RNA: Eukaryotic large subunit ribosomal RNA, nucleotides 2803 to 3399
RNA sequence: AAAGAAGACCCUGUUGAGCUUGACUCUAGUUUGACAUUGUGAAAAGACAUAGAGGGUGUAGGAUAAGUGGGAGACCGUUAAAAGUCGACAGUGAAAUACCACUACCUUUAUUGUUUUUUUACUUAUUUUAUGAGGAGGAACUAGGCUUCACCGCCUACCCUUCUGGAAUUAAAAUGACCUCUUUUGGUUAUUGAUCCUGGUAAAAGACAUUGUCAGGUGGGGAGUUUGGCUGGGGCGGCACAUCUGUUAAACAAUAACGCAGGUGUCCUAAGGGGGGCUCAACGAGAACAGAAAUCUCGUGUAGAACAAAAGGGUAAAAGCCCCCUUGAUUUUGAUUUUCAGUAUGAAUACAAACCAUGAAAGUGUGGCCUAUCGAUCCUUUAGAUCCUGGAAAUUUCAGGCUAGAGGUGUCAGAAAAGUUACCACAGGGAUAACUGGCUUGUGGCAGCCAAGCGCUCAUAGCGACGUUGCUUUUUGAUCCUUCGAUGUCGGCUCUUCCUAUCAUACCGAGGCAGAACUCGGUAAGUGUUGGAUUGUUCACCCACUAAUAGGGAACGUGAGCUGGGUUUAGACCGUCGUGAGACAGGUUAGUUUUAC
Numbered sequence: 001a002a003a004g005a006a007g008a009c010c011c012u013g014u015u016g017a018g019c020u021u022g023a024c025u026c027u028a029g030u031u032u033g034a035c036a037u038u039g040u041g042a043a044a045a046g047a048c049a050u051a052g053a054g055g056g057u058g059u060a061g062g063a064u065a066a067g068u069g070g071g072a073g074a075c076c077g078u079u080a081a082a083a084g085u086c087g088a089c090a091g092u093g094a095a096a097u098a099c100c101a102c103u104a105c106c107u108u109u110a111u112u113g114u115u116u117u118u119u120u121a122c123u124u125a126u127u128u129u130a131u132g133a134g135g136a137g138g139a140a141c142u143a144g145g146c147u148u149c150a151c152c153g154c155c156u157a158c159c160c161u162u163c164u165g166g167a168a169u170u171a172a173a174a175u176g177a178c179c180u181c182u183u184u185u186g187g188u189u190a191u192u193g194a195u196c197c198u199g200g201u202a203a204a205a206g207a208c209a210u211u212g213u214c215a216g217g218u219g220g221g222g223a224g225u226u227u228g229g230c231u232g233g234g235g236c237g238g239c240a241c242a243u244c245u246g247u248u249a250a251a252c253a254a255u256a257a258c259g260c261a262g263g264u265g266u267c268c269u270a271a272g273g274g275g276g277g278c279u280c281a282a283c284g285a286g287a288a289c290a291g292a293a294a295u296c297u298c299g300u301g302u303a304g305a306a307c308a309a310a311a312g313g314g315u316a317a318a319a320g321c322c323c324c325c326u327u328g329a330u331u332u333u334g335a336u337u338u339u340c341a342g343u344a345u346g347a348a349u350a351c352a353a354a355c356c357a358u359g360a361a362a363g364u365g366u367g368g369c370c371u372a373u374c375g376a377u378c379c380u381u382u383a384g385a386u387c388c389u390g391g392a393a394a395u396u397u398c399a400g401g402c403u404a405g406a407g408g409u410g411u412c413a414g415a416a417a418a419g420u421u422a423c424c425a426c427a428g429g430g431a432u433a434a435c436u437g438g439c440u441u442g443u444g445g446c447a448g449c450c451a452a453g454c455g456c457u458c459a460u461a462g463c464g465a466c467g468u469u470g471c472u473u474u475u476u477g478a479u480c481c482u483u484c485g486a487u488g489u490c491g492g493c494u495c496u497u498c499c500u501a502u503c504a505u506a507c508c509g510a511g512g513c514a515g516a517a518c519u520c521g522g523u524a525a526g527u528g529u530u531g532g533a534u535u536g537u538u539c540a541c542c543c544a545c546u547a548a549u550a551g552g553g554a555a556c557g558u559g560a561g562c563u564g565g566g567u568u569u570a571g572a573c574c575g576u577c578g579u580g581a582g583a584c585a586g587g588u589u590a591g592u593u594u595u596a597c
Base pairs, nucleotide, nucleotide: 002595003594010429011428012427013426015425016424017421018420019419020418021417023225024224025223026222030217031216032215033214034213035212036211039122040121041120042119043118044117045116046115047114048113049111050110051109052108053107054106055105066103067102068101069100070099073086074085126205127204128203129202130201136198137197138196139195143156144155145154146153173192174191175190176189177188178187179186228241229239230238231237242264243263244262245261246260247259267368268367273325274324275323276322277321278320279305280304282300283299284298285297286296287295306315307314330354331353332352335349336348337347338346356365357364358363379407380406381405382404383403384402387401388400389399390398438479440477442476444472445471446470447469448468449467453463454462490565491563492562493561494560495557496554497553498552499551500550503528504527506523507522508521509520510519511518530544531543532542534540571589572588573587574586575584576583577582